[Rfam]
RNA sequence: AAGCGUGCGUUGAAGGAUUGCAGUAGAAGACAAAUCCCUGUUACAGAGAGCUGACGGUGGUGCGAGUCAGUACAUAUUUGAUUUUCGAAGUACGAUCUGGAGCGGAUCUUCUGGUAUGAAUCAGAAGACGGCUUAUUGGAGCCGUUAUCGAUACAAGUGGCGUGUAAUGCGCAACAAGGGUGGUACCGCGAAUAGACCUCGUCCCUUUC
Numbered sequence: 001a002a003g004c005g006u007g008c009g010u011u012g013a014a015g016g017a018u019u020g021c022a023g024u025a026g027a028a029g030a031c032a033a034a035u036c037c038c039u040g041u042u043a044c045a046g047a048g049a050g051c052u053g054a055c056g057g058u059g060g061u062g063c064g065a066g067u068c069a070g071u072a073c074a075u076a077u078u079u080g081a082u083u084u085u086c087g088a089a090g091u092a093c094g095a096u097c098u099g100g101a102g103c104g105g106a107u108c109u110u111c112u113g114g115u116a117u118g119a120a121u122c123a124g125a126a127g128a129c130g131g132c133u134u135a136u137u138g139g140a141g142c143c144g145u146u147a148u149c150g151a152u153a154c155a156a157g158u159g160g161c162g163u164g165u166a167a168u169g170c171g172c173a174a175c176a177a178g179g180g181u182g183g184u185a186c187c188g189c190g191a192a193u194a195g196a197c198c199u200c201g202u203c204c205c206u207u208u209c
Base pairs, nucleotide, nucleotide: 007103008102015098016097017096018095026086027085028084029083030082039074040073041072050071051070052069053068054067055066108127109126110125111124112123113122114121129144130143131142132141133140160172161171162170163169164168177206178205179204180203188202189201190200191199